5' ureB small RNA: a 287-nucleotide sequence from Rhizobacter sp. Root404. The organism belongs to Rhizobacter, within Bacteria. A search with the family's covariance model found it, with a score of 127 bits.
RNA sequence: CCUCUUCGAUCUGCUGCGGGCAGAUGAAGUGGAUGUGGGUGUCGAUGCCGCCGGCGGUGAUGAUGUUCCCUUCGCCGGCGAUGAUCUCGGUGCCGGGGCCGAUCACGAUGUCGACACCGGGUUGCACGUCCGGGUUGCCGGCCUUGCCGAUGCCGGCGAUCAAGCCGUUCUUGAUCGCGAUGUCGGCCUUGACGACGCCCCAGUGGUCGAUGAUCAGCGCGUUGGUGAUCACGGUGUCGGCCACCUCGGCGGCGAGGCGCUGGCUCUGCCCCAUGCCGUCGCGGAUG
Number, nucleotide and partner (000 for none) at each position: 001c287002c000003u285004c000005u283006u000007c281008g280009a279010u000011c000012u158013g157014c156015u155016g154017c000018g076019g075020g000021c000022a072023g071024a000025u000026g000027a000028a000029g000030u053031g052032g051033a000034u050035g049036u000037g048038g000039g046040u045041g000042u000043c000044g000045a040046u039047g000048c037049c035050g034051c032052c031053g030054g000055c000056g000057g069058u000059g067060a000061u000062g000063a000064u000065g000066u000067u059068c000069c057070c000071u023072u022073c000074g000075c019076c018077g148078g147079c000080g000081a144082u000083g142084a000085u140086c000087u000088c000089g000090g138091u137092g135093c134094c133095g000096g130097g129098g125099c124100c000101g123102a122103u121104c120105a000106c000107g117108a000109u000110g000111u000112c000113g000114a000115c000116a000117c107118c000119g000120g104121g103122u102123u101124g099125c098126a000127c000128g000129u097130c096131c000132g000133g094134g093135u092136u000137g091138c090139c000140g085141g000142c083143c000144u081145u000146g000147c078148c077149g000150a000151u000152g000153c000154c016155g015156g014157c013158g012159a000160u000161c000162a000163a000164g270165c000166c268167g267168u000169u000170c000171u000172u263173g000174a261175u000176c259177g258178c257179g000180a000181u000182g000183u000184c000185g000186g220187c219188c000189u217190u216191g215192a000193c000194g000195a000196c000197g000198c000199c000200c209201c000202a000203g000204u000205g000206g000207u000208c000209g200210a000211u000212g000213a000214u000215c191216a190217g189218c000219g187220c186221g000222u000223u255224g000225g253226u000227g000228a000229u000230c000231a246232c000233g000234g244235u243236g242237u000238c000239g000240g000241c000242c236243a235244c234245c000246u231247c000248g000249g000250c000251g000252g000253c225254g000255a223256g000257g178258c177259g176260c000261u174262g000263g172264c000265u000266c000267u167268g166269c000270c164271c000272c000273a000274u000275g000276c000277c000278g000279u009280c008281g007282c000283g005284g000285a003286u000287g001